[Rfam]
RNA sequence: CUUCACCGAGCCGAGCCACAGCGGCGUGCCGGCGUCCCGGCCCUGCCCGUAGGUGGCGAGGAGGGCCUGCGCCUC
Numbered sequence: 001c002u003u004c005a006c007c008g009a010g011c012c013g014a015g016c017c018a019c020a021g022c023g024g025c026g027u028g029c030c031g032g033c034g035u036c037c038c039g040g041c042c043c044u045g046c047c048c049g050u051a052g053g054u055g056g057c058g059a060g061g062a063g064g065g066c067c068u069g070c071g072c073c074u075c
Stems, first nucleotide, its partner, number of pairs: 015025003032070002038065001043060002047056003
Shown here is a 75-nucleotide RNA from Streptomyces sp. RKND-216, a member of the family "ASpks TB sRNA". By type it is an antisense RNA. Taxonomically the source falls in Streptomyces (Bacteria, Bacillati, Actinomycetes, Kitasatosporales). The family's consensus secondary structure is taken from published work. The match comes from Rfam's covariance-model search (72 bits).